A member of the RNA family "Coronavirus packaging signal" from Betacoronavirus gravedinis, 110 nucleotides long. The sequence is in the family's curated seed alignment. Taxonomically the source falls in Betacoronavirus 1 (Viruses, Cornidovirineae, Betacoronavirus, Betacoronavirus gravedinis). From the family's description: This family represents a predicted coronavirus packaging signal. Within a virally infected cell, viral genome and viral proteins specifically and selectively unite into progeny viruses. This process is called packaging and is vital for viral replication. Viral RNA containing a packaging signal allows the sequence to be efficiently packaged into the virion. The base pairs follow the family's consensus structure, which is taken from published work.
[Rfam]
RNA sequence: AUGUCAUCUUCAGCCAAUUCGACAGCCUGGGAGUCAGCUCUAACCAGAGCCCACAAGGUAAUCUGGGGAGUAAUGGUAAACCCGGUAAUGUCGGUGGUAAUGAUGCUCUG
Numbered sequence: 001a002u003g004u005c006a007u008c009u010u011c012a013g014c015c016a017a018u019u020c021g022a023c024a025g026c027c028u029g030g031g032a033g034u035c036a037g038c039u040c041u042a043a044c045c046a047g048a049g050c051c052c053a054c055a056a057g058g059u060a061a062u063c064u065g066g067g068g069a070g071u072a073a074u075g076g077u078a079a080a081c082c083c084g085g086u087a088a089u090g091u092c093g094g095u096g097g098u099a100a101u102g103a104u105g106c107u108c109u110g
Stems, first nucleotide, its partner, number of pairs: 008105001010103003014097003021092004026085002034076003038070003044066005050058002